Group II catalytic intron D1-D4-2: a 119-nucleotide RNA from Paraglaciecola sp. MB-3u-78. Rfam describes the family as follows. Group II introns are found in rRNA, tRNA and mRNA of organelles in fungi, plants and protists, and also in mRNA in bacteria. NCBI's taxonomy places the organism under Bacteria, Pseudomonadati, Alteromonadales, Alteromonadaceae, Paraglaciecola.
RNA sequence: GGUGGUAGGCCCACCGGAGUCUGCUGUCGGAAGCUGGCUCCAAACCACUUCAAGUGGCUGUUAUUAAGAGUAAUGGUCAUAAGCGUUGAAGUCAAAGUGCGGACAAUAGUCCGGCAGGU
Numbered sequence: 001g002g003u004g005g006u007a008g009g010c011c012c013a014c015c016g017g018a019g020u021c022u023g024c025u026g027u028c029g030g031a032a033g034c035u036g037g038c039u040c041c042a043a044a045c046c047a048c049u050u051c052a053a054g055u056g057g058c059u060g061u062u063a064u065u066a067a068g069a070g071u072a073a074u075g076g077u078c079a080u081a082a083g084c085g086u087u088g089a090a091g092u093c094a095a096a097g098u099g100c101g102g103a104c105a106a107u108a109g110u111c112c113g114g115c116a117g118g119u
Stems, first nucleotide, its partner, number of pairs: 001015005016041006023034003046118001048091006054080002057077003061073004097115002100113004